tRNA: an 85-nucleotide RNA from Dermacoccus nishinomiyaensis. By type it is a transfer RNA. The match comes from Rfam's covariance-model search (57 bits). On this family, see Hou, Trends Biochem Sci 1993: "The tertiary structure of tRNA and the development of the genetic code". From the family's description: Transfer RNA (tRNA) molecules are approximately 80 nucleotides in length. The organism belongs to Dermacoccus, within Bacteria.
[Rfam]
RNA sequence: GGAGGGCUCGCAUAGUGGCCGAGUGCACCGGUCUUGAAAACCGGAGUUGGGAAACCAACCGUGGGUUCAAAUCCCACGCCCUCCG
Numbered sequence: 001g002g003a004g005g006g007c008u009c010g011c012a013u014a015g016u017g018g019c020c021g022a023g024u025g026c027a028c029c030g031g032u033c034u035u036g037a038a039a040a041c042c043g044g045a046g047u048u049g050g051g052a053a054a055c056c057a058a059c060c061g062u063g064g065g066u067u068c069a070a071a072u073c074c075c076a077c078g079c080c081c082u083c084c085g
Stems, first nucleotide, its partner, number of pairs: 001084007010026004028044005061077005
Dot-bracket structure: (((((((..((((.........)))).(((((.......)))))................(((((.......)))))))))))).